Annotation: Shown here is a 185-nucleotide RNA from Hucho hucho, a member of the family "U2 spliceosomal RNA". The match comes from Rfam's covariance-model search (128 bits). A reference for the family is Zwieb (1997), "The uRNA database", Nucleic Acids Res. It is annotated as a spliceosomal small nuclear RNA. The source organism's lineage runs through Eukaryota, Opisthokonta, Actinopteri, Salmoninae and Hucho. Rfam describes the family as follows. U2 is a small nuclear RNA (snRNA) component of the spliceosome (involved in pre-mRNA splicing). Complementary binding between U2 snRNA (in an area lying towards the 5' end but 3' to hairpin I) and the branchpoint sequence (BPS) of the intron results the bulging out of an unpaired adenosine, on the BPS, which initiates a nucleophilic attack at the intronic 5' splice site, thus starting the first of two transesterification reactions that mediate splicing.
[Rfam]
RNA sequence: AUGGCAUUGAAAGUAAUAAAUAUUAUAUAUAAUCUGUUCUUAUCAGUUUAAUAUCUGAUACGUCCCCCAUCGGGGGACUACAUAUUAAAUGGAUUUUUCGAACAGGGAGUCGGAAAUGGGGCUUGCUCCGUCCGCUCCACGCAUCGACCCGGUAUUGCAGUACCUCCGGGAACGGUGCACCACUU
Numbered sequence: 001a002u003g004g005c006a007u008u009g010a011a012a013g014u015a016a017u018a019a020a021u022a023u024u025a026u027a028u029a030u031a032a033u034c035u036g037u038u039c040u041u042a043u044c045a046g047u048u049u050a051a052u053a054u055c056u057g058a059u060a061c062g063u064c065c066c067c068c069a070u071c072g073g074g075g076g077a078c079u080a081c082a083u084a085u086u087a088a089a090u091g092g093a094u095u096u097u098u099c100g101a102a103c104a105g106g107g108a109g110u111c112g113g114a115a116a117u118g119g120g121g122c123u124u125g126c127u128c129c130g131u132c133c134g135c136u137c138c139a140c141g142c143a144u145c146g147a148c149c150c151g152g153u154a155u156u157g158c159a160g161u162a163c164c165u166c167c168g169g170g171a172a173c174g175g176u177g178c179a180c181c182a183c184u185u
Base pairs, nucleotide, nucleotide: 001021002020041060042059043058044057045056046055062078063077064076065075066074067073068072106138107137108136109135110134112132113131118129119128120127121126141178142177143176144175145174146173148170149169150168151167152166